[Rfam]
RNA sequence: CACGAAUUUGAGGCCAUUGCAGAAGCGCUCAUGGUGUGAUCUGUCAGAUUCCAACAAAUCUGCAAAUUCUACU
Numbered sequence: 001c002a003c004g005a006a007u008u009u010g011a012g013g014c015c016a017u018u019g020c021a022g023a024a025g026c027g028c029u030c031a032u033g034g035u036g037u038g039a040u041c042u043g044u045c046a047g048a049u050u051c052c053a054a055c056a057a058a059u060c061u062g063c064a065a066a067u068u069c070u071a072c073u
Base pairs, nucleotide, nucleotide: 012041013040015038019072021070022069023068024067025037026036027035045062046061047060048059049058050057

Record summary: A member of the RNA family "Mammalian CPEB3 ribozyme" from Crocodylus porosus, 73 nucleotides long. The organism belongs to Crocodylus, within Eukaryota. Rfam links the family to the GO term RNA nuclease activity. Rfam's curators write: The mammalian CPEB3 ribozyme is a self cleaving RNA located in the second intron of the CPEB3 gene which belongs to a family of genes regulating messenger RNA polyadenylation. This ribozyme is highly conserved and found only in mammals. The CPEB3 ribozyme is structurally and biochemically related to the human hepatitis delta virus (HDV) ribozyme and the HDV ribozyme is proposed to have arisen from the human transcriptome. There is currently only one other known self cleaving ribozyme in mammals, the CoTC motif.